[Rfam]
RNA sequence: GGGUCCGCAGUUCACCCAGGCGUUGCCAGAGUUUUACUCACGCUAAACCUGCUG
Numbered sequence: 001g002g003g004u005c006c007g008c009a010g011u012u013c014a015c016c017c018a019g020g021c022g023u024u025g026c027c028a029g030a031g032u033u034u035u036a037c038u039c040a041c042g043c044u045a046a047a048c049c050u051g052c053u054g
Stems, first nucleotide, its partner, number of pairs: 001017004029039004
This 54-nucleotide RNA from Burkholderiales bacterium PBB4 belongs to the Rfam family "COG3860 RNA". The base pairs follow the family's consensus structure, which is taken from published work.